Shown here is a 167-nucleotide RNA from Cylindrospermum stagnale, a member of the family "Ribosomal protein L10 leader". A search with the family's covariance model found it, with a score of 53 bits. By type it is a cis-regulatory leader. About the family: This family is a putative r-protein leader autoregulatory structure found in B. subtilis and other low-GC Gram-positive bacteria.

[Rfam]
RNA sequence: AAAAUUGAAUAGGCAAAGCCGGAGAAAGCAGGUGCUAACAACUUAAUAUCCUGCCGAGGUGGAUGCUUUAACUGCCUGAAGUUUUACCUAAUAAGGUGUAAUACUACGGCAGGAAAAGUAUGACUACUAAACCCCGGCAAAAAAAGCUGGGGUUUAUUAUUUUGGGC
Numbered sequence: 001a002a003a004a005u006u007g008a009a010u011a012g013g014c015a016a017a018g019c020c021g022g023a024g025a026a027a028g029c030a031g032g033u034g035c036u037a038a039c040a041a042c043u044u045a046a047u048a049u050c051c052u053g054c055c056g057a058g059g060u061g062g063a064u065g066c067u068u069u070a071a072c073u074g075c076c077u078g079a080a081g082u083u084u085u086a087c088c089u090a091a092u093a094a095g096g097u098g099u100a101a102u103a104c105u106a107c108g109g110c111a112g113g114a115a116a117a118g119u120a121u122g123a124c125u126a127c128u129a130a131a132c133c134c135c136g137g138c139a140a141a142a143a144a145a146g147c148u149g150g151g152g153u154u155u156a157u158u159a160u161u162u163u164g165g166g167c
Base pairs, nucleotide, nucleotide: 028054029053030052031051032050034042036040132152133151134150135149136148137147138146